[Rfam]
RNA sequence: CACGUAAGCGCGAGAUGCUUACGUGGAAGGAAAUCGCUUCCUCAAGGACGCAAUUUCCUUACACGUAAGCAUCUCACGCUUACGUGG
Dot-bracket structure: ((((((((((.((((((((((.(((.((((((((.((..((....))..)).)))))))).))).)))))))))).)))))))))).

A member of the RNA family "MIR7486 microRNA precursor family" from Gossypium lobatum, 87 nucleotides long. It scores 85 bits against the family's covariance model.